[Rfam]
RNA: mir-160 microRNA precursor family
RNA sequence: AUAUGCCUGGCUCCCUGUAUGUCAUUUGCAAAGUCCAUCUGUAAAUUGAUGGUCUUCAUGAAUGGCAUGCAAGGAGCCAUGCAUGA
Numbered sequence: 001a002u003a004u005g006c007c008u009g010g011c012u013c014c015c016u017g018u019a020u021g022u023c024a025u026u027u028g029c030a031a032a033g034u035c036c037a038u039c040u041g042u043a044a045a046u047u048g049a050u051g052g053u054c055u056u057c058a059u060g061a062a063u064g065g066c067a068u069g070c071a072a073g074g075a076g077c078c079a080u081g082c083a084u085g086a
Base pairs, nucleotide, nucleotide: 002085003084004083005082006081008079009078010077011076012075013074014073016071017070018069019068020067021066022065023064024063027060028059